The record is a 168-nucleotide RNA sequence from Rhodococcus ruber, which matches "c-di-AMP riboswitch aptamer (ydaO/yuaA leader)" in Rfam. From the family's description: This family represents a conserved RNA structure found upstream of the ydaO and yuaA genes in Bacillus subtilis and related genes in other bacteria.
[Rfam]
Nucleotides: 168
Stems, first nucleotide, its partner, number of pairs: 011152004018043003044147006054067002068132003076105006108126004
Number, partner (000 for none) and nucleotide at each position: 001000g002000c003000u004000c005000g006000g007000u008000c009000a010000c011152c012151g013150c014149c015000u016000a017000a018043u019042c020041g021000g022000c023000g024000c025000a026000u027000c028000c029000a030000c031000a032000g033000c034000g035000g036000g037000u038000g039000c040000c041020c042019g043018a044147g045146c046145c047144g048143g049142g050000g051000a052000c053000c054067c055066a056000c057000g058000u059000u060000g061000u062000c063000c064000u065000c066055u067054g068132g069131g070130g071000u072000g073000a074000a075000u076105c077104c078103c079102c080101u081100c082000c083000g084000a085000c086000c087000g088000u089000c090000a091000c092000c093000g094000c095000g096000g097000a098000a099000c100081g101080a102079g103078g104077g105076g106000u107000a108126g109125g110124g111123c112000u113000g114000a115000u116000c117000u118000u119000c120000c121000c122000a123111g124110c125109c126108c127000g128000a129000a130070c131069c132068c133000g134000u135000c136000a137000g138000c139000u140000a141000a142049c143048u144047c145046g146045g147044u148000c149014g150013g151012c152011g153000g154000a155000c156000g157000a158000a159000c160000g161000g162000a163000a164000g165000a166000a167000a168000u

Record summary: A search with the family's covariance model found it, with a score of 79 bits.